[Rfam]
RNA sequence: GACCCAUUAGCUCAGCCGGUAGAGCACUUGACUUUUAAUCAAGGUGUCGCGCGUUCGAAUCGCGCAUGGGUCA
Numbered sequence: 001g002a003c004c005c006a007u008u009a010g011c012u013c014a015g016c017c018g019g020u021a022g023a024g025c026a027c028u029u030g031a032c033u034u035u036u037a038a039u040c041a042a043g044g045u046g047u048c049g050c051g052c053g054u055u056c057g058a059a060u061c062g063c064g065c066a067u068g069g070g071u072c073a
Base pairs, nucleotide, nucleotide: 001072002071003070004069005068006067007066010025011024012023013022027043028042029041030040031039049065050064051063052062053061
Record summary:
A member of the RNA family "tRNA" from Peptoniphilus indolicus, 73 nucleotides long. Lineage of the source: Bacteria > Bacillota > Tissierellia > Tissierellales > Peptoniphilus indolicus. The base pairs follow the family's consensus structure, which is taken from published work. The match comes from Rfam's covariance-model search (72 bits).